[Rfam]
RNA sequence: UGAGUAAGUUAGAUGAUCGCUGCCUCGAAAGAGGGAGAGGAAAGUCCGAGCUCCGUAGGGCAGGAUGCCGGGUAAUACCCGGUGGAGGCGACUCCAAGGAAAGUGCAACAGAGAUAUACCGCCAUAAUCUUUCUCCGGCUUUCAUCAUUGAAAAAUGCUGGAGUUGGAUGAAUGCAGUUUCCAUUUAAACUGCGUGGCAAGGGUGGAAAGGUGAGGUAAGAGCUCACCAGCAGUUAGGCGACUAACUGGCUCUGUAAACCCCAUCUGGAGCAAGACCAAAUAGAAGAGCAUUUAUGUACUGGCCCGGUACGCUCUUGGGUAGUGUCGCUUGAGCUAACUGGCAACAGUUAGCCUAGAUAGAUGAUCAUCCACGACAGAACUCGGCUUAUAGACUUACUCAUAUG
Numbered sequence: 001u002g003a004g005u006a007a008g009u010u011a012g013a014u015g016a017u018c019g020c021u022g023c024c025u026c027g028a029a030a031g032a033g034g035g036a037g038a039g040g041a042a043a044g045u046c047c048g049a050g051c052u053c054c055g056u057a058g059g060g061c062a063g064g065a066u067g068c069c070g071g072g073u074a075a076u077a078c079c080c081g082g083u084g085g086a087g088g089c090g091a092c093u094c095c096a097a098g099g100a101a102a103g104u105g106c107a108a109c110a111g112a113g114a115u116a117u118a119c120c121g122c123c124a125u126a127a128u129c130u131u132u133c134u135c136c137g138g139c140u141u142u143c144a145u146c147a148u149u150g151a152a153a154a155a156u157g158c159u160g161g162a163g164u165u166g167g168a169u170g171a172a173u174g175c176a177g178u179u180u181c182c183a184u185u186u187a188a189a190c191u192g193c194g195u196g197g198c199a200a201g202g203g204u205g206g207a208a209a210g211g212u213g214a215g216g217u218a219a220g221a222g223c224u225c226a227c228c229a230g231c232a233g234u235u236a237g238g239c240g241a242c243u244a245a246c247u248g249g250c251u252c253u254g255u256a257a258a259c260c261c262c263a264u265c266u267g268g269a270g271c272a273a274g275a276c277c278a279a280a281u282a283g284a285a286g287a288g289c290a291u292u293u294a295u296g297u298a299c300u301g302g303c304c305c306g307g308u309a310c311g312c313u314c315u316u317g318g319g320u321a322g323u324g325u326c327g328c329u330u331g332a333g334c335u336a337a338c339u340g341g342c343a344a345c346a347g348u349u350a351g352c353c354u355a356g357a358u359a360g361a362u363g364a365u366c367a368u369c370c371a372c373g374a375c376a377g378a379a380c381u382c383g384g385c386u387u388a389u390a391g392a393c394u395u396a397c398u399c400a401u402a403u404g
Stems, first nucleotide, its partner, number of pairs: 001400010011389001012369007020037002023034004042387003046384005051270004058305004063266005068082005083097001084095004098261002103259002105255003119202002121198005210228006230250001231248007274326003277322001284316006296310005333352008
Bacterial RNase P class A: a 404-nucleotide RNA from Fonticella tunisiensis.
The family's consensus secondary structure is taken from published work.
It is annotated as a ribozyme.